[Rfam]
Shown here is a 106-nucleotide sequence from Tessaracoccus defluvii, a member of the family "TPP riboswitch aptamer (THI element)". NCBI's taxonomy places the organism under Bacteria, Bacillati, Actinomycetes, Propionibacteriaceae, Tessaracoccus. The match comes from Rfam's covariance-model search (68 bits). Pairs were carried over by alignment from the consensus structure, which is taken from published work.
RNA sequence: CCUGACACACAGGGGAGCGCCGUGGGGCGCUGAGAGUGCGGACCCUCCGCAGACCCUCCAACCUGAUCCGGUUAGCACCGGCGUAGGGAGUGGGAUCUCCUCGGCA
Dot-bracket structure: .....(.(((((((..(((((....)))))......(((((.....)))))..))))....((((..((((......))))..))))..))).)............
Numbered sequence: 001c002c003u004g005a006c007a008c009a010c011a012g013g014g015g016a017g018c019g020c021c022g023u024g025g026g027g028c029g030c031u032g033a034g035a036g037u038g039c040g041g042a043c044c045c046u047c048c049g050c051a052g053a054c055c056c057u058c059c060a061a062c063c064u065g066a067u068c069c070g071g072u073u074a075g076c077a078c079c080g081g082c083g084u085a086g087g088g089a090g091u092g093g094g095a096u097c098u099c100c101u102c103g104g105c106a
Stems, first nucleotide, its partner, number of pairs: 006094001008092003011057004017030005037051005062087004068081004